[Rfam]
RNA sequence: UUGAAUACUUUUUCUUUUACUCAUAUAUCCCUGAUAAUUGGAUCGGGGGUUUCUACGAGGCAACCGUAAUUGCUUCUCUAUGAGCCAGAGAUGGUUCAUA
Numbered sequence: 001u002u003g004a005a006u007a008c009u010u011u012u013u014c015u016u017u018u019a020c021u022c023a024u025a026u027a028u029c030c031c032u033g034a035u036a037a038u039u040g041g042a043u044c045g046g047g048g049g050u051u052u053c054u055a056c057g058a059g060g061c062a063a064c065c066g067u068a069a070u071u072g073c074u075u076c077u078c079u080a081u082g083a084g085c086c087a088g089a090g091a092u093g094g095u096u097c098a099u100a
Base pairs, nucleotide, nucleotide: 020084021083022082023081024080025079029048030047031046032045033044034043035042057076058075059074060073061072062071063070